[Rfam]
A member of the RNA family "glmS glucosamine-6-phosphate activated ribozyme aptamer" from Jeotgalibacillus sp. R-1-5s-1, 164 nucleotides long. Rfam classes the family as a riboswitch. Pairs were carried over by alignment from the consensus structure, which is taken from published work. This entry contains a glucosamine-6-phosphate activated ribozyme that is found in the mRNA for GlmS. GlmS is an enzyme that uses fructose-6-phosphate and glutamine to generate glucosamine-6-phosphate.
RNA sequence: GAGUAAGACAAAGCGCCAGGACUGCCCAGUGGAGCGGCAGUUGACGAGGAGAAGGAGCAUCGACGAUUCGGCGGAUGCCUUCCGGCUGAUGACUGCACAGCCGACAACCUGUGAUCUGAAAUCAUAAAGGCGACUUUAUGGACAAAGAAGCGGGGCUGCAGCAC
Numbered sequence: 001g002a003g004u005a006a007g008a009c010a011a012a013g014c015g016c017c018a019g020g021a022c023u024g025c026c027c028a029g030u031g032g033a034g035c036g037g038c039a040g041u042u043g044a045c046g047a048g049g050a051g052a053a054g055g056a057g058c059a060u061c062g063a064c065g066a067u068u069c070g071g072c073g074g075a076u077g078c079c080u081u082c083c084g085g086c087u088g089a090u091g092a093c094u095g096c097a098c099a100g101c102c103g104a105c106a107a108c109c110u111g112u113g114a115u116c117u118g119a120a121a122u123c124a125u126a127a128a129g130g131c132g133a134c135u136u137u138a139u140g141g142a143c144a145a146a147g148a149a150g151c152g153g154g155g156c157u158g159c160a161g162c163a164c
Base pairs, nucleotide, nucleotide: 020042021041022040023039024038025037026036051082052081053080054079055078060071061070062069063068083103084102085101086100087099088098108154109153110152111151112150115149123140124139125138126137127136128135129134
Dot-bracket structure: ...................(((((((.........)))))))........(((((....((((....))))......)))))((((((.........))))))....(((((..(.......(((((((....)))))))........))))))..........